Overview:
The record is a 137-nucleotide sequence from Cohnella pontilimi, which matches "c-di-AMP riboswitch aptamer (ydaO/yuaA leader)" in Rfam. The match comes from Rfam's covariance-model search (75 bits). The organism belongs to Cohnella, within Bacteria.
[Rfam]
RNA sequence: GCAAAAAAAUUGCCGAAUUCCCGCGCACCGGGAAACGGGGGAACCACUCUGGGUGAAUUGGUCUCGCUUCACAGUGACCAUAGGGAACCUUCAACCGAACCCUCCAGCUAACCUCGUAGGCAUUGGAAGGAGACACC
Numbered sequence: 001g002c003a004a005a006a007a008a009a010u011u012g013c014c015g016a017a018u019u020c021c022c023g024c025g026c027a028c029c030g031g032g033a034a035a036c037g038g039g040g041g042a043a044c045c046a047c048u049c050u051g052g053g054u055g056a057a058u059u060g061g062u063c064u065c066g067c068u069u070c071a072c073a074g075u076g077a078c079c080a081u082a083g084g085g086a087a088c089c090u091u092c093a094a095c096c097g098a099a100c101c102c103u104c105c106a107g108c109u110a111a112c113c114u115c116g117u118a119g120g121c122a123u124u125g126g127a128a129g130g131a132g133a134c135a136c137c
Base pairs, nucleotide, nucleotide: 011122012121013120014119018034019033020032021031022030023029035117036116037115038114039113040112051102052101053100059080060079061078062077083096084095